[Rfam]
Nucleotides: 078
Base pairs, nucleotide, nucleotide: 013046016045017044018043022078023077024076025075026074027073028072029041030040031039050067051066052065053064054063055062056061
Number, partner (000 for none) and nucleotide at each position: 001000a002000g003000a004000u005000c006000a007000c008000a009000a010000g011000u012000u013046u014000g015000a016045g017044g018043u019000c020000g021000u022078g023077g024076c025075a026074g027073a028072a029041g030040u031039g032000u033000u034000c035000a036000u037000g038000a039031u040030g041029c042000a043018g044017c045016u046013a047000u048000g049000u050067c051066a052065g053064a054063u055062u056061c057000c058000a059000a060000u061056g062055a063054a064053u065052c066051u067050g068000c069000a070000a071000a072028u073027u074026c075025u076024g077023c078022u